[Rfam]
RNA sequence: GGGAUCAGAAGAGGUGCGUUAACCAGGUAAUCUGUUCGAGGUAUCCAACUACCCACGACGGCAGAUAAGGGGGAUUAACGCCGAGGUAAGUUUGCGUUUGGAAGCAAGCCUUAUCGGUUGCUGGGGCUGAAUCCUCAGGGCUGUCACCUAUGGUGGAGAGCUUCUGGUGUU
Numbered sequence: 001g002g003g004a005u006c007a008g009a010a011g012a013g014g015u016g017c018g019u020u021a022a023c024c025a026g027g028u029a030a031u032c033u034g035u036u037c038g039a040g041g042u043a044u045c046c047a048a049c050u051a052c053c054c055a056c057g058a059c060g061g062c063a064g065a066u067a068a069g070g071g072g073g074a075u076u077a078a079c080g081c082c083g084a085g086g087u088a089a090g091u092u093u094g095c096g097u098u099u100g101g102a103a104g105c106a107a108g109c110c111u112u113a114u115c116g117g118u119u120g121c122u123g124g125g126g127c128u129g130a131a132u133c134c135u136c137a138g139g140g141c142u143g144u145c146a147c148c149u150a151u152g153g154u155g156g157a158g159a160g161c162u163u164c165u166g167g168u169g170u171u
Base pairs, nucleotide, nucleotide: 006166007165008164009163010162011161016081017080018079019078020077021076022075024073030066031065032064033063034062035061036060085115086114087113088112089111090110091108092107093106094105095104116142117141118140119139121138122137123136124135125134126133144156145155146154147153148152

A member of the RNA family "Lysine riboswitch aptamer" from Photobacterium lipolyticum, 171 nucleotides long.
Its family is annotated with lysine biosynthetic process in the Gene Ontology.
The base pairs follow the family's consensus structure, which is taken from published work.
From the family's description: Riboswitches are metabolite binding domains within certain messenger RNAs that serve as precision sensors for their corresponding targets.